RNA sequence: AGGCAGCCCCCUUGCGAAAAGAAAAAAGAAAUGGCAGGGGAGGUGUUAAUCUGCUCGGAAAUUAAUCGUUUUUUGCUCUUCAGAUUUGCUGAGAUGGGGGGUUUACUCCUUUCCCUGAAGCUGGUCUAGUAAGCAUAAGCACACU
Numbered sequence: 001a002g003g004c005a006g007c008c009c010c011c012u013u014g015c016g017a018a019a020a021g022a023a024a025a026a027a028g029a030a031a032u033g034g035c036a037g038g039g040g041a042g043g044u045g046u047u048a049a050u051c052u053g054c055u056c057g058g059a060a061a062u063u064a065a066u067c068g069u070u071u072u073u074u075g076c077u078c079u080u081c082a083g084a085u086u087u088g089c090u091g092a093g094a095u096g097g098g099g100g101g102u103u104u105a106c107u108c109c110u111u112u113c114c115c116u117g118a119a120g121c122u123g124g125u126c127u128a129g130u131a132a133g134c135a136u137a138a139g140c141a142c143a144c145u
Base pairs, nucleotide, nucleotide: 002047003046004045005044007043008042009040010039011038012037013036014035015034017032070139071138072137075134076133077132082127083126084125085124086123088121089120090119093113094112
Shown here is a 145-nucleotide RNA from Tetracentron sinense, a member of the family "Small nucleolar RNA snoR77". Lineage of the source: Eukaryota > Mesangiospermae > Trochodendrales > Trochodendraceae > Tetracentron. For this family Rfam cites "Experimental RNomics: identification of 140 candidates for small non-messenger RNAs in the plant Arabidopsis thaliana" (Marker et al., Curr Biol, 2002).